[Rfam]
RNA: Bacterial large subunit ribosomal RNA, nucleotides 896 to 1339
Organism: Auritidibacter sp. NML120636
RNA sequence: CUCCCCGAAAUGCAUUUAGGUGCAGCGUUGCGUGUUUCUUGCUGGUGGUAGAGCUACUGGUUGGCUGAUGGGCCCGACAAGGUUACUGACGUCAGCCAAACUCCGAAUGCUGGUGAGUGAGAGCGUGGCAGUGAGACUGUGGGGGAUAAGCUUCAUGGUCGAGAGGGAAACAGCCCAGAUCAUCGGUUAAGGCCCCUAAGCGUGUGCUAAGUGGAAAAGGAUGUGAAGUUGCUGAGACAACCAGGAGGUUGGCUUAGAAGCAGCCACCCUUGAAAGAGUGCGUAAUAGCCCACUGGUCAAGUGAUUUUGCGCCGACAAUGUAGCGGGGCUUAAGCAUACCGCCGAAACUGUGACAAACCACCGUGUGGUGGGUUGGGUAGGGGAGCGUCGUGCGUGUGGUGAAGCAGUCGUGUGAACGGUUGUGGAGAGCGUGCGAGUGAGAAU
Numbered sequence: 001c002u003c004c005c006c007g008a009a010a011u012g013c014a015u016u017u018a019g020g021u022g023c024a025g026c027g028u029u030g031c032g033u034g035u036u037u038c039u040u041g042c043u044g045g046u047g048g049u050a051g052a053g054c055u056a057c058u059g060g061u062u063g064g065c066u067g068a069u070g071g072g073c074c075c076g077a078c079a080a081g082g083u084u085a086c087u088g089a090c091g092u093c094a095g096c097c098a099a100a101c102u103c104c105g106a107a108u109g110c111u112g113g114u115g116a117g118u119g120a121g122a123g124c125g126u127g128g129c130a131g132u133g134a135g136a137c138u139g140u141g142g143g144g145g146a147u148a149a150g151c152u153u154c155a156u157g158g159u160c161g162a163g164a165g166g167g168a169a170a171c172a173g174c175c176c177a178g179a180u181c182a183u184c185g186g187u188u189a190a191g192g193c194c195c196c197u198a199a200g201c202g203u204g205u206g207c208u209a210a211g212u213g214g215a216a217a218a219g220g221a222u223g224u225g226a227a228g229u230u231g232c233u234g235a236g237a238c239a240a241c242c243a244g245g246a247g248g249u250u251g252g253c254u255u256a257g258a259a260g261c262a263g264c265c266a267c268c269c270u271u272g273a274a275a276g277a278g279u280g281c282g283u284a285a286u287a288g289c290c291c292a293c294u295g296g297u298c299a300a301g302u303g304a305u306u307u308u309g310c311g312c313c314g315a316c317a318a319u320g321u322a323g324c325g326g327g328g329c330u331u332a333a334g335c336a337u338a339c340c341g342c343c344g345a346a347a348c349u350g351u352g353a354c355a356a357a358c359c360a361c362c363g364u365g366u367g368g369u370g371g372g373u374u375g376g377g378u379a380g381g382g383g384a385g386c387g388u389c390g391u392g393c394g395u396g397u398g399g400u401g402a403a404g405c406a407g408u409c410g411u412g413u414g415a416a417c418g419g420u421u422g423u424g425g426a427g428a429g430c431g432u433g434c435g436a437g438u439g440a441g442a443a444u
Base pairs, nucleotide, nucleotide: 001385002384003383004382005381006380011024012023013022014021015020026131027129028128029127030126031125032124033123036122038117039116040115041114042113043112044111045110046109051104052102053101058098059097060096062094063093064092065091070086071084072083073082074081135160136159137158138157139156140155141154142153143152144151165176166175167174180353181352182351183350185349186348187347191343192342193341200340202339203338204337205336206335207334219313220312223310224309225308226307227306228305229304230303231302232301240297241296242295243294244293246270247269248268251265252264253263271275276291280289281288354375355374356373358371359370360369361368386439388436389435390434391433392432393431394430395429397427404423405422406421407420408419409418410417411416